[Rfam]
RNA sequence: GGGGGGAGGCCGGAUCCUGGGCUGUGUCCCGGCGCCCUGUGCUCCGGGGCCUGCGCUGUUGGAAUCGCGCUCCCGGUGUAGCUCUGU
Numbered sequence: 001g002g003g004g005g006g007a008g009g010c011c012g013g014a015u016c017c018u019g020g021g022c023u024g025u026g027u028c029c030c031g032g033c034g035c036c037c038u039g040u041g042c043u044c045c046g047g048g049g050c051c052u053g054c055g056c057u058g059u060u061g062g063a064a065u066c067g068c069g070c071u072c073c074c075g076g077u078g079u080a081g082c083u084c085u086g087u
Stems, first nucleotide, its partner, number of pairs: 006087001009084001011081001013079001016076002019073003023069004027063003030058006039051001041050003